This 459-nucleotide part of an RNA from Oreochromis aureus belongs to the Rfam family "Eukaryotic large subunit ribosomal RNA". It scores 2325 bits against the family's covariance model. The source organism's lineage runs through Eukaryota, Euteleostomi, Neoteleostei, Ovalentaria and Oreochromis.
RNA sequence: CGGGUGGGGUCCGCGCAGUCUGCCCGGGGGAUUCAACUCGGCGGGCCCGGGGACGCCGCGCGGCGUGGGAGCAUCCCCUCGCGGGCCCUCCCCCCGCUGCCGGCUGGCCCCCCGCCGGGCGCAUUUCCUCCGCGGCGGUGCGUCGCGACCGGCUCCGGUUCGGCCAGGAAGGGUCUGGGGCGAAGGUGGCUCGCGGCUUCGGCCGCGAGCUUUACAGCGCCUCUCGCCCGGAAUUCGCCGCUUACCGGGGCCGCGGACUCUGUGCUCGCUGCGCCCUCUCUCCCCCUAACCCGGGGAGGGACGGGGCCCCCUCGCUCCCGGCGCGACUGUCGACCGGGGCGGACUGUCCUCAGUGCGCUCCAACCGCGUCGCGCCGCCAGGGCGGGGAUCGGCCCACGCCAAAGGCGCAACGGGUCUGCGGCGAUGUCGGCUACCCACCCGACCCGUCUUGAAACACGG
Numbered sequence: 001c002g003g004g005u006g007g008g009g010u011c012c013g014c015g016c017a018g019u020c021u022g023c024c025c026g027g028g029g030g031a032u033u034c035a036a037c038u039c040g041g042c043g044g045g046c047c048c049g050g051g052g053a054c055g056c057c058g059c060g061c062g063g064c065g066u067g068g069g070a071g072c073a074u075c076c077c078c079u080c081g082c083g084g085g086c087c088c089u090c091c092c093c094c095c096g097c098u099g100c101c102g103g104c105u106g107g108c109c110c111c112c113c114g115c116c117g118g119g120c121g122c123a124u125u126u127c128c129u130c131c132g133c134g135g136c137g138g139u140g141c142g143u144c145g146c147g148a149c150c151g152g153c154u155c156c157g158g159u160u161c162g163g164c165c166a167g168g169a170a171g172g173g174u175c176u177g178g179g180g181c182g183a184a185g186g187u188g189g190c191u192c193g194c195g196g197c198u199u200c201g202g203c204c205g206c207g208a209g210c211u212u213u214a215c216a217g218c219g220c221c222u223c224u225c226g227c228c229c230g231g232a233a234u235u236c237g238c239c240g241c242u243u244a245c246c247g248g249g250g251c252c253g254c255g256g257a258c259u260c261u262g263u264g265c266u267c268g269c270u271g272c273g274c275c276c277u278c279u280c281u282c283c284c285c286c287u288a289a290c291c292c293g294g295g296g297a298g299g300g301a302c303g304g305g306g307c308c309c310c311c312u313c314g315c316u317c318c319c320g321g322c323g324c325g326a327c328u329g330u331c332g333a334c335c336g337g338g339g340c341g342g343a344c345u346g347u348c349c350u351c352a353g354u355g356c357g358c359u360c361c362a363a364c365c366g367c368g369u370c371g372c373g374c375c376g377c378c379a380g381g382g383c384g385g386g387g388a389u390c391g392g393c394c395c396a397c398g399c400c401a402a403a404g405g406c407g408c409a410a411c412g413g414g415u416c417u418g419c420g421g422c423g424a425u426g427u428c429g430g431c432u433a434c435c436c437a438c439c440c441g442a443c444c445c446g447u448c449u450u451g452a453a454a455c456a457c458g459g
Stems, first nucleotide, its partner, number of pairs: 001441008012430001021135001024132001026130006141423007444459004